A member of the RNA family "Makes More Granules Regulator RNA (mmgR)" from Novosphingobium sp. AAP1, 78 nucleotides long.
Pairs were carried over by alignment from the consensus structure.
SuhB later renamed mmgR (makes more granules regulator) was a putative non-coding RNA found multiple times in the Agrobacterium tumefaciens genome and related alpha-proteobacteria. Other non-coding RNAs uncovered in the same analysis include: speF, ybhL, metA, and serC.Several studies inSinorhizobium meliloti showed that suhB element is indeed a non-coding RNA:firstly it was detected on Northern blot and called Sm8RNA, secondly in an RNAseq study referred to as SmelC689.The mutant phenotype's (strain lacking the small RNA) cytoplasm contains higher content of polyhydroxybutyrate (PBH)storage granules than wild type strain. The sRNA is required to limit the PBH intracellular accumulation when the nitrogen-fixing Sinorhizobium meliloti is under condition of surplus carbon in relation to nitrogen. It has been renamed to mmgR. Further study confirmed that mmgR fine-tunes the regulation of PBH storage.Northern blot confirmed the expression of the sRNA in other rhizobia species. MmgR homologues were found in most alpha-proteobacteria.

[Rfam]
RNA sequence: AGAUAAGGCCUUUCAGGCAUCCUCUCCCAAAACUUCCCGGGCCGAUCGGAUUUCCGACCGGCCCUUUUUUUGUCCGUA
Number, nucleotide and partner (000 for none) at each position: 001a000002g000003a000004u000005a000006a000007g000008g018009c017010c016011u015012u000013u000014c000015a011016g010017g009018c008019a000020u000021c000022c000023u000024c000025u000026c000027c000028c000029a000030a000031a000032a000033c000034u000035u000036c000037c000038c000039g000040g063041g062042c061043c060044g059045a000046u057047c056048g055049g000050a000051u000052u000053u000054c000055c048056g047057a046058c000059c044060g043061g042062c041063c040064c000065u000066u000067u000068u000069u000070u000071u000072g000073u000074c000075c000076g000077u000078a000
Its family is annotated with DNA-templated transcription, termination, protein binding and response to nitrogen compound in the Gene Ontology. Rfam classes the family as a small RNA.